[Rfam]
The record is a 130-nucleotide RNA from Gluconobacter oxydans, which matches "TPP riboswitch aptamer (THI element)" in Rfam. Pairs were carried over by alignment from the consensus structure, which is taken from published work. The match comes from Rfam's covariance-model search (69 bits).

RNA sequence: CGCUUCACCGUGGGGGGCUCCGGCAUGGGGCUGAGAUUCUGCUGGUGUGACCCUUAAAAGUCAUGCGGUGCAGUGACCCAUUGAACCUGAUCCAGUUCAUACUGGCGGAGGGAUGGUGGUCGCUGUCUGC
Number, nucleotide and partner (000 for none) at each position: 001c000002g000003c000004u000005u000006c118007a117008c116009c115010g114011u080012g079013g078014g077015g000016g074017g031018c030019u029020c028021c027022g000023g000024c000025a000026u000027g021028g020029g019030g018031c017032u000033g000034a000035g000036a000037u000038u000039c073040u072041g071042c070043u000044g000045g000046u000047g000048u000049g000050a000051c000052c000053c000054u000055u000056a000057a000058a000059a000060g000061u000062c000063a000064u000065g000066c000067g000068g000069u000070g042071c041072a040073g039074u016075g000076a000077c014078c013079c012080a011081u000082u000083g000084a000085a000086c111087c110088u109089g000090a000091u000092c105093c104094a103095g102096u000097u000098c000099a000100u000101a000102c095103u094104g093105g092106c000107g000108g000109a088110g087111g086112g000113a000114u010115g009116g008117u007118g006119g000120u000121c000122g000123c000124u000125g000126u000127c000128u000129g000130c000